A member of the RNA family "mir-219 microRNA precursor family" from Microcaecilia unicolor, 81 nucleotides long.
Rfam links the family to the GO terms miRNA-mediated post-transcriptional gene silencing and RISC complex.
Pairs were carried over by alignment from the consensus structure, which was predicted with RNAalifold.
On this family, see Lai et al., Genome Biol 2003: "Computational identification of Drosophila microRNA genes".

RNA sequence: UCAGCUCCUGAUUGUCCAAACGCAAUUCUUGUGUCUUUUCUGGUCCGAGCCCAAGAAUUGGGUCUGGGCAUCCUGAGCUGU
Numbered sequence: 001u002c003a004g005c006u007c008c009u010g011a012u013u014g015u016c017c018a019a020a021c022g023c024a025a026u027u028c029u030u031g032u033g034u035c036u037u038u039u040c041u042g043g044u045c046c047g048a049g050c051c052c053a054a055g056a057a058u059u060g061g062g063u064c065u066g067g068g069c070a071u072c073c074u075g076a077g078c079u080g081u
Base pairs, nucleotide, nucleotide: 002080003079004078005077006076007075010072011071012070014069015068016067017066018065021062023060024059025058026057027056028055029054030053031052